[Rfam]
RNA sequence: CUGGCUCCGGUUCACGUCGUGCACUCAGCACCGACGACCCGGCGCC
Numbered sequence: 001c002u003g004g005c006u007c008c009g010g011u012u013c014a015c016g017u018c019g020u021g022c023a024c025u026c027a028g029c030a031c032c033g034a035c036g037a038c039c040c041g042g043c044g045c046c
Stems, first nucleotide, its partner, number of pairs: 003046003007042004015036005020030003

Rfam assigns this 46-nucleotide RNA to the family "L31-Actinobacteria ribosomal protein leader". By type it is a cis-regulatory leader. It is one of the family's seed sequences.